The record is a 75-nucleotide RNA from Clupea harengus, which matches "Small nucleolar RNA SNORD103/SNORD85" in Rfam. It scores 51 bits against the family's covariance model.

RNA sequence: UCUGGCAUUGAUGACAAACUUGCCCUCACUGAGCGUUUUUUAAACUCGAUAAUGAUCCAUUAUAUCUGAGCCAGA
Numbered sequence: 001u002c003u004g005g006c007a008u009u010g011a012u013g014a015c016a017a018a019c020u021u022g023c024c025c026u027c028a029c030u031g032a033g034c035g036u037u038u039u040u041u042a043a044a045c046u047c048g049a050u051a052a053u054g055a056u057c058c059a060u061u062a063u064a065u066c067u068g069a070g071c072c073a074g075a
Base pairs, nucleotide, nucleotide: 001075002074003073004072005071006070
On this family, see Huttenhofer et al., EMBO J 2001: "RNomics: an experimental approach that identifies 201 candidates for novel, small, non-messenger RNAs in mouse". The organism belongs to Clupea, within Eukaryota.